[Rfam]
RNA sequence: GCGGGUGCAGGGGAUGACAAUUUUUUUCCCCAUCAGAGCGGCAGUGUUGAUUUCUCGCUGUUCAAGCCAGAUCGUGUCUGAUGCACCUUG
Numbered sequence: 001g002c003g004g005g006u007g008c009a010g011g012g013g014a015u016g017a018c019a020a021u022u023u024u025u026u027u028c029c030c031c032a033u034c035a036g037a038g039c040g041g042c043a044g045u046g047u048u049g050a051u052u053u054c055u056c057g058c059u060g061u062u063c064a065a066g067c068c069a070g071a072u073c074g075u076g077u078c079u080g081a082u083g084c085a086c087c088u089u090g
Base pairs, nucleotide, nucleotide: 002090003089004087005086006085007084008083009082
Dot-bracket structure: .((((((((........................................................................)))))).))
Description
This 90-nucleotide RNA from Otus sunia belongs to the Rfam family "Small nucleolar SNORD12/SNORD106". The organism belongs to Otus, within Eukaryota.